The family of this 78-nucleotide sequence from Ladona fulva is "let-7 microRNA precursor family".

RNA sequence: UCGGCGUGAGGUAGUAGGUUGUAUAGUUGCGAACUACAUCAUAACGGGAGAACUGUACAACUUGCUAACUUUCCCCGA
Numbered sequence: 001u002c003g004g005c006g007u008g009a010g011g012u013a014g015u016a017g018g019u020u021g022u023a024u025a026g027u028u029g030c031g032a033a034c035u036a037c038a039u040c041a042u043a044a045c046g047g048g049a050g051a052a053c054u055g056u057a058c059a060a061c062u063u064g065c066u067a068a069c070u071u072u073c074c075c076c077g078a
Stems, first nucleotide, its partner, number of pairs: 001078004006073001008071003012067016042047001

Its family is annotated with RISC complex and miRNA-mediated post-transcriptional gene silencing in the Gene Ontology. Pairs were carried over by alignment from the consensus structure, which was predicted with RNAalifold. Its Rfam clan is "let-7 microRNA precursor clan". For this family Rfam cites "microRNAs: tiny regulators with great potential" (Ambros, Cell, 2001). About the family: This family represents the microRNAs (miRNA) let-7 and mir-98. let-7 was identified from a study of developmental timing in C. elegans, and was later shown to be part of a much larger class of non-coding RNAs termed miRNAs. NCBI's taxonomy places the organism under Eukaryota, Ecdysozoa, Odonata, Anisoptera, Ladona.